The family of this 446-nucleotide part of an RNA from Roseibium suaedae is "Bacterial large subunit ribosomal RNA". The organism belongs to Roseibium, within Bacteria. Pairs were carried over by alignment from the consensus structure, which is taken from published work. The match comes from Rfam's covariance-model search (2717 bits).
RNA sequence: CUCCGCGAAAUCUAUUUAGGUAGAGCGUCGGCCGAAUACUCUCGGGGGUAGAGCACUGGAUGGGCUAUGGGGGCUUACCGCCUUACUGAUCCUAACCAAACUCCGAAUACCGAGAAGUACUAGCCGGCAGACACACAGUGGGUGCUAACGUCCAUUGUGAAGAGGGAAACAACCCUGACCGCCAGUUAAGGUCCCUAAGUUAUGGCUAAGUGGGAAAGGAUGUAGAACUCCCAAAACAACCAGGAUGUUGGCUUAGAAGCAGCCAUCAUUUAAAGAAAGCGUAACAGCUCACUGGUCUAAAUAAGGGGUUCCGCGCCGAAAAUGUACCGGGGCUCAAGCCAUACACCGAAACUGCGGGUGCAUCUUAUGAUGCGCGGUAGCGGAGCGUUCUGUAAGUCUGCGAAGGGAGACCCGUGAGGGCUCCUGGAGAUAUCAGAAGUGCGAAU
Numbered sequence: 001c002u003c004c005g006c007g008a009a010a011u012c013u014a015u016u017u018a019g020g021u022a023g024a025g026c027g028u029c030g031g032c033c034g035a036a037u038a039c040u041c042u043c044g045g046g047g048g049u050a051g052a053g054c055a056c057u058g059g060a061u062g063g064g065c066u067a068u069g070g071g072g073g074c075u076u077a078c079c080g081c082c083u084u085a086c087u088g089a090u091c092c093u094a095a096c097c098a099a100a101c102u103c104c105g106a107a108u109a110c111c112g113a114g115a116a117g118u119a120c121u122a123g124c125c126g127g128c129a130g131a132c133a134c135a136c137a138g139u140g141g142g143u144g145c146u147a148a149c150g151u152c153c154a155u156u157g158u159g160a161a162g163a164g165g166g167a168a169a170c171a172a173c174c175c176u177g178a179c180c181g182c183c184a185g186u187u188a189a190g191g192u193c194c195c196u197a198a199g200u201u202a203u204g205g206c207u208a209a210g211u212g213g214g215a216a217a218g219g220a221u222g223u224a225g226a227a228c229u230c231c232c233a234a235a236a237c238a239a240c241c242a243g244g245a246u247g248u249u250g251g252c253u254u255a256g257a258a259g260c261a262g263c264c265a266u267c268a269u270u271u272a273a274a275g276a277a278a279g280c281g282u283a284a285c286a287g288c289u290c291a292c293u294g295g296u297c298u299a300a301a302u303a304a305g306g307g308g309u310u311c312c313g314c315g316c317c318g319a320a321a322a323u324g325u326a327c328c329g330g331g332g333c334u335c336a337a338g339c340c341a342u343a344c345a346c347c348g349a350a351a352c353u354g355c356g357g358g359u360g361c362a363u364c365u366u367a368u369g370a371u372g373c374g375c376g377g378u379a380g381c382g383g384a385g386c387g388u389u390c391u392g393u394a395a396g397u398c399u400g401c402g403a404a405g406g407g408a409g410a411c412c413c414g415u416g417a418g419g420g421c422u423c424c425u426g427g428a429g430a431u432a433u434c435a436g437a438a439g440u441g442c443g444a445a446u
Stems, first nucleotide, its partner, number of pairs: 001385006011024005026130001027128006036121001040115006051104001052102002057098003061094004069086001070084005134159010164175003179357004184353003190347003199344001201343006218317002222314002225311007239296005245269003250264003270274001275290001279288002358375007386441001388438005396431003405425005411420003
Dot-bracket structure: ((((((....(((((....))))).(((((((...(...((((((.....(((...(((.((((....((((((.....))))).)....)))).)))..)).).....)))))).....).)))))).)...((((((((((......))))))))))....(((......)))...((((.(((...(((......(.((((((...........((..((.(((((((.......(((((.(((..(((.........)))..)))(...)(...((......)).).)))))........))))))).)).))....................))))))))))...)))))))(((((((....)))))))....))))))(.(((((...(((......(((((.(((....))))))))...)))..)))))..).....